[Rfam]
RNA sequence: CUCCAUCGCUAAGUCAAGGCUUCUCCUGCGAUCACCAUAUCGUAUUCUCUCAAUGGGAGUCUGUCUGUUACAGCUUUGGUAUAUUAACACUGGCCCGCACCGAAUUUCUUUCUGAAGCUAGGUUGACAGUUCUUCGUUUUGAAGGGCUGUCGUAAGGGACAGCUGUGUUUUGUUUUUGAGUUGAGUUCUGCUUCUGCCUUUUCUGGUGGCUUCAUAGCAGAACUCUUAGUAACAUCCCACACAUUC
Numbered sequence: 001c002u003c004c005a006u007c008g009c010u011a012a013g014u015c016a017a018g019g020c021u022u023c024u025c026c027u028g029c030g031a032u033c034a035c036c037a038u039a040u041c042g043u044a045u046u047c048u049c050u051c052a053a054u055g056g057g058a059g060u061c062u063g064u065c066u067g068u069u070a071c072a073g074c075u076u077u078g079g080u081a082u083a084u085u086a087a088c089a090c091u092g093g094c095c096c097g098c099a100c101c102g103a104a105u106u107u108c109u110u111u112c113u114g115a116a117g118c119u120a121g122g123u124u125g126a127c128a129g130u131u132c133u134u135c136g137u138u139u140u141g142a143a144g145g146g147c148u149g150u151c152g153u154a155a156g157g158g159a160c161a162g163c164u165g166u167g168u169u170u171u172g173u174u175u176u177u178g179a180g181u182u183g184a185g186u187u188c189u190g191c192u193u194c195u196g197c198c199u200u201u202u203c204u205g206g207u208g209g210c211u212u213c214a215u216a217g218c219a220g221a222a223c224u225c226u227u228a229g230u231a232a233c234a235u236c237c238c239a240c241a242c243a244u245u246c
Stems, first nucleotide, its partner, number of pairs: 003079002005075001017066004023059004028043005090162003094158002099123003103119001105117004125151012165240003171234003183225004189219004194209005
The family of this 246-nucleotide RNA from Penicillium angulare is "Small nucleolar RNA snR191". The organism belongs to Penicillium, within Eukaryota. The literature on the family includes a 2003 paper in RNA by Badis et al., "A snoRNA that guides the two most conserved pseudouridine modifications within rRNA confers a growth advantage in yeast". Pairs were carried over by alignment from the consensus structure, which was predicted with WAR. Clan: SNORA74 clan. The match comes from Rfam's covariance-model search (63 bits). Gene Ontology terms of the family: nucleolus and RNA processing. The family's RNA type in Rfam is H/ACA-box small nucleolar RNA.